[Rfam]
RNA sequence: GGACUGGCUCCAGCUCAGCGGUUCCUUCGACAGAAAGCUUACAAUCACCUCUGUGGUUCGAGACCCGCGGGCGCUCCCCAGUCCUUUU
Numbered sequence: 001g002g003a004c005u006g007g008c009u010c011c012a013g014c015u016c017a018g019c020g021g022u023u024c025c026u027u028c029g030a031c032a033g034a035a036a037g038c039u040u041a042c043a044a045u046c047a048c049c050u051c052u053g054u055g056g057u058u059c060g061a062g063a064c065c066c067g068c069g070g071g072c073g074c075u076c077c078c079c080a081g082u083c084c085u086u087u088u
Stems, first nucleotide, its partner, number of pairs: 002083006013072004018068004026062005
A member of the RNA family "Vault RNA" from Marmota marmota, 88 nucleotides long. By type it is a non-coding RNA gene. The match comes from Rfam's covariance-model search (78 bits).